[Rfam]
RNA sequence: CGCCCCAAGGAGCGCUGCAGCAGCGCGGGUGCCGUCCGGCACGCGCUGUCAGGCUUGGGGUGGCGGCGGGAAGCGCCCUGCCGACGCGAUGCAACGGCGCUCACCUGUC
Number, nucleotide and partner (000 for none) at each position: 001c000002g061003c060004c059005c058006c057007a056008a055009g000010g000011a000012g000013c000014g000015c000016u000017g000018c000019a000020g000021c048022a047023g046024c045025g044026c043027g000028g000029g000030u000031g000032c000033c000034g000035u000036c000037c000038g000039g000040c000041a000042c000043g026044c025045g024046c023047u022048g021049u000050c000051a000052g000053g000054c000055u008056u007057g006058g005059g004060g003061u002062g000063g000064c000065g000066g000067c000068g000069g000070g000071a000072a000073g000074c000075g000076c000077c000078c000079u000080g000081c000082c000083g000084a000085c000086g000087c000088g000089a000090u000091g000092c000093a000094a000095c000096g000097g000098c000099g000100c000101u000102c000103a000104c000105c000106u000107g000108u000109c000
The record is a 109-nucleotide RNA sequence from Acidovorax sp. HDW3, which matches "SAH (S-adenosyl-L-homocysteine) riboswitch aptamer" in Rfam. The family's consensus secondary structure is taken from published work.